[Rfam]
RNA sequence: UAGUAGAUGCACCCUGAUGAUCGACGCCUCAACAAAUGUUGGGCGUUUUUUAU
Numbered sequence: 001u002a003g004u005a006g007a008u009g010c011a012c013c014c015u016g017a018u019g020a021u022c023g024a025c026g027c028c029u030c031a032a033c034a035a036a037u038g039u040u041g042g043g044c045g046u047u048u049u050u051u052a053u
Base pairs, nucleotide, nucleotide: 003012004011025045026044027043028042029041031040032039033038
Rfam assigns this 53-nucleotide RNA from Microcoleus sp. FACHB-831 to the family "Nitrogen stress-induced RNA 1". The family's RNA type in Rfam is small RNA. It scores 39 bits against the family's covariance model. The organism belongs to Microcoleus, within Bacteria. Pairs were carried over by alignment from the consensus structure.